The family of this 85-nucleotide RNA from Subdoligranulum sp. CAG:314 is "ZMP/ZTP riboswitch aptamer (pfl RNA motif)".

RNA sequence: UACGUUGCGUAUGACUGACGGAAAUUCGGCAGGUUACUGCGGGGGAGUACGCAAACGGUUCAAGCCGUCCGUCUGGGCAAUUUCU
Number, nucleotide and partner (000 for none) at each position: 001u000002a000003c000004g000005u054006u053007g052008c051009g050010u049011a048012u047013g000014a000015c044016u043017g073018a072019c071020g070021g069022a000023a000024a000025u000026u000027c000028g000029g040030c039031a038032g037033g000034u000035u000036a000037c032038u031039g030040c029041g000042g000043g016044g015045g000046a000047g012048u011049a010050c009051g008052c007053a006054a005055a000056c000057g000058g000059u000060u000061c000062a000063a000064g078065c077066c076067g000068u000069c021070c020071g019072u018073c017074u000075g000076g066077g065078c064079a000080a000081u000082u000083u000084c000085u000
The match comes from Rfam's covariance-model search (55 bits).